[Rfam]
RNA sequence: CCUGCCGCAGGCGUUGCAAAGGUGGCUGCUGUGGCACCUUUGUGUCAUUAGGUGGCAGAGAGAGACAGGCUAUGUUCUACGCUCGUUUGUUCUGAAACCUGUGAGCACUCUGAGUGAUUGAUAGCCUGACACU
Numbered sequence: 001c002c003u004g005c006c007g008c009a010g011g012c013g014u015u016g017c018a019a020a021g022g023u024g025g026c027u028g029c030u031g032u033g034g035c036a037c038c039u040u041u042g043u044g045u046c047a048u049u050a051g052g053u054g055g056c057a058g059a060g061a062g063a064g065a066c067a068g069g070c071u072a073u074g075u076u077c078u079a080c081g082c083u084c085g086u087u088u089g090u091u092c093u094g095a096a097a098c099c100u101g102u103g104a105g106c107a108c109u110c111u112g113a114g115u116g117a118u119u120g121a122u123a124g125c126c127u128g129a130c131a132c133u
Stems, first nucleotide, its partner, number of pairs: 002058005008051001010046003016043004021038004026033001064130001066128008080116002083113003088107005